[Rfam]
Rfam assigns this 80-nucleotide RNA sequence from Flavobacterium psychrophilum to the family "Flavo-1 RNA". It is annotated as a small RNA. NCBI's taxonomy places the organism under Bacteria, Pseudomonadati, Bacteroidota, Flavobacteriaceae, Flavobacterium psychrophilum.
RNA sequence: UCCUAGCCCCGAUUGCAACGGAAAUCCUUUUUCUUGCUUCUUUAGCAAGGAAAAGAUUGAAGUGUAAAGCGGGAAAUAGC
Numbered sequence: 001u002c003c004u005a006g007c008c009c010c011g012a013u014u015g016c017a018a019c020g021g022a023a024a025u026c027c028u029u030u031u032u033c034u035u036g037c038u039u040c041u042u043u044a045g046c047a048a049g050g051a052a053a054a055g056a057u058u059g060a061a062g063u064g065u066a067a068a069g070c071g072g073g074a075a076a077u078a079g080c
Stems, first nucleotide, its partner, number of pairs: 009072003013068002018063002023058004029053010